[Rfam]
Nucleotides: 275
Base pairs, nucleotide, nucleotide: 014262015261016260017259018258019257020256021255023253024252026250030246031245032244033243034242035241036240037239038238039237040236042234044232045231046230047229048228049227050226051225052224053223055221056220057219058218059217060216061215062214063213064212065211066210067209069207070206071205072204073203074202075201077199078198079197080196081195083193084192086190087189088188089187090186092184094182095181096180097179098178099177101175102174103173104172105171106170107169108168109167110166111165112164114162115161117159118158119157120156122154131145132144133143134142135141136140
Number, partner (000 for none) and nucleotide at each position: 001000g002000a003000u004000g005000u006000c007000a008000a009000c010000u011000g012000a013000a014262a015261a016260a017259g018258u019257u020256a021255u022000c023253a024252a025000c026250a027000a028000c029000a030246a031245a032244g033243u034242u035241g036240u037239a038238g039237a040236a041000g042234u043000u044232a045231u046230c047229a048228a049227g050226a051225u052224c053223u054000g055221u056220a057219a058218c059217u060216u061215u062214u063213a064212u065211u066210u067209u068000g069207g070206u071205c072204a073203u074202u075201u076000g077199u078198u079197c080196a081195u082000c083193c084192g085000a086190c087189a088188a089187a090186g091000g092184g093000a094182u095181a096180g097179u098178a099177a100000c101175a102174u103173u104172g105171u106170u107169c108168a109167c110166a111165a112164a113000u114162u115161u116000u117159a118158c119157a120156u121000c122154u123000c124000u125000c126000u127000c128000a129000u130000a131145u132144g133143g134142u135141u136140u137000c138000a139000u140136a141135a142134a143133c144132c145131a146000u147000a148000a149000g150000a151000g152000a153000g154122a155000u156120a157119u158118g159117u160000a161115a162114a163000u164112u165111u166110u167109g168108u169107g170106a171105a172104c173103a174102a175101u176000a177099u178098u179097a180096c181095u182094a183000u184092u185000a186090c187089u188088u189087u190086g191000c192084c193083g194000g195081a196080u197079g198078a199077a200000g201075a202074a203073a204072u205071g206070a207069c208000c209067a210066a211065a212064a213063u214062a215061a216060a217059a218058g219057u220056u221055g222000u223053a224052g225051a226050u227049c228048u229047u230046g231045a232044u233000c234042a235000a236040u237039u238038c239037u240036a241035c242034a243033a244032c245031u246030u247000u248000u249000a250026u251000g252024u253023u254000c255021a256020u257019g258018a259017c260016u261015u262014u263000u264000u265000c266000a267000g268000c269000u270000g271000a272000a273000a274000u275000c

A member of the RNA family "MIR821 microRNA precursor family" from Miscanthus lutarioriparius, 275 nucleotides long. NCBI's taxonomy places the organism under Eukaryota, Viridiplantae, Euphyllophyta, commelinids, Miscanthus. The base pairs follow the family's consensus structure, which was predicted with RNAalifold.